Notes
This 95-nucleotide RNA from Methylobacterium gnaphalii belongs to the Rfam family "Repression of heat shock gene expression (ROSE) element". Rfam classes the family as an RNA thermoregulator. Rfam links the family to the GO terms response to temperature stimulus and regulation of translation.

Nucleotides: 095
Base pairs, nucleotide, nucleotide: 001023002022003021004020005019008017009016030054031053032052033051034050035049036048037047038046039045056093057092058091059090060089063086064085065084066083067082068081069080071079072078073077
Number, partner (000 for none) and nucleotide at each position: 001023u002022g003021c004020g005019a006000g007000g008017c009016u010000c011000a012000u013000c014000u015000g016009a017008g018000g019005u020004c021003g022002c023001a024000c025000a026000u027000c028000u029000a030054g031053u032052c033051a034050c035049g036048g037047g038046g039045u040000a041000u042000g043000u044000u045039g046038c047037c048036c049035u050034g051033u052032g053031a054030u055000c056093u057092u058091c059090g060089u061000c062000a063086u064085c065084a066083c067082g068081u069080u070000g071079c072078u073077c074000u075000a076000u077073g078072a079071g080069g081068a082067u083066g084065u085064g086063g087000u088000u089060a090059u091058g092057a093056g094000g095000a
This family represents a 5' UTR cis-regulatory element found in heat shock mRNAs and is known as the ROSE (repression of heat shock gene expression) element. The ROSE element is a negative regulator of heat shock gene expression. The secondary structure is thought to be regulated by temperature. The source organism's lineage runs through Bacteria, Pseudomonadota, Alphaproteobacteria, Methylobacteriaceae and Methylobacterium.